The family of this 252-nucleotide RNA sequence from Pseudomonas sp. 21C1 is "Pseudomonas sRNA P24".
RNA sequence: UUGCUCAAUGGCUACCUAAUUGAGCAAUCUUUGCAAUCUUCUGCUGCAGCCUGAGGCGUAAGCUUUACCUCAGUUUCAAGGCCCGGACACAGUGUCCAGGCGCGACGCCCAACCAGGUGACGCGCUGCCGCCGACCCCACCGGGUCGUAGCGGCCCCCGGGUCCGCACUGCCCAACCAGGCGGGCGACGAAAGCGGCGACAGAAUUGCCAGCACAGGACAACGUUCCCCAGGGGAGGCCGCGAGGCCUCCCU
Numbered sequence: 001u002u003g004c005u006c007a008a009u010g011g012c013u014a015c016c017u018a019a020u021u022g023a024g025c026a027a028u029c030u031u032u033g034c035a036a037u038c039u040u041c042u043g044c045u046g047c048a049g050c051c052u053g054a055g056g057c058g059u060a061a062g063c064u065u066u067a068c069c070u071c072a073g074u075u076u077c078a079a080g081g082c083c084c085g086g087a088c089a090c091a092g093u094g095u096c097c098a099g100g101c102g103c104g105a106c107g108c109c110c111a112a113c114c115a116g117g118u119g120a121c122g123c124g125c126u127g128c129c130g131c132c133g134a135c136c137c138c139a140c141c142g143g144g145u146c147g148u149a150g151c152g153g154c155c156c157c158c159g160g161g162u163c164c165g166c167a168c169u170g171c172c173c174a175a176c177c178a179g180g181c182g183g184g185c186g187a188c189g190a191a192a193g194c195g196g197c198g199a200c201a202g203a204a205u206u207g208c209c210a211g212c213a214c215a216g217g218a219c220a221a222c223g224u225u226c227c228c229c230a231g232g233g234g235a236g237g238c239c240g241c242g243a244g245g246c247c248u249c250c251c252u
Stems, first nucleotide, its partner, number of pairs: 002011001043057003076192001080188001081162004085097004100125005107118003127154004133146005164186003168183005193212002195209005231252004236247004

The family's RNA type in Rfam is non-coding RNA gene.